[Rfam]
RNA sequence: CCGUGACACUGGCCGGUGCUAAAGGGUCCCUGCCCCGACAGCGCCUGUUAGUAGCCGUUGGGCAGGACCCUUUAGCACUAGAUCGUGUUACAAA
Dot-bracket structure: ..(((((((.(.(.(((((((((((((.((...(((.((.....((...)).....)).)))..))))))))))))))).).).)))))))...
The record is a 94-nucleotide RNA sequence from Sorghum bicolor, which matches "MIR5387 microRNA precursor family" in Rfam. Rfam links the family to the GO terms RISC complex and miRNA-mediated post-transcriptional gene silencing. Taxonomically the source falls in Sorghum (Eukaryota, Viridiplantae, Streptophyta, Petrosaviidae).